Annotation: A member of the RNA family "ilvH RNA" from Simplicispira hankyongi, 68 nucleotides long. The family's RNA type in Rfam is cis-regulatory element. Lineage of the source: Bacteria > Pseudomonadota > Betaproteobacteria > Burkholderiales > Simplicispira. The family's consensus secondary structure is taken from published work.

RNA sequence: GACGAAUCUAUUGCCUGCCAAGGCGCACGCUUACCGGCGUGCGCGGAGGGCAGCAAAAAGAGGAAUCU
Dot-bracket structure: ..........(((.(((((...(((((((((....)))))))))....))))))))............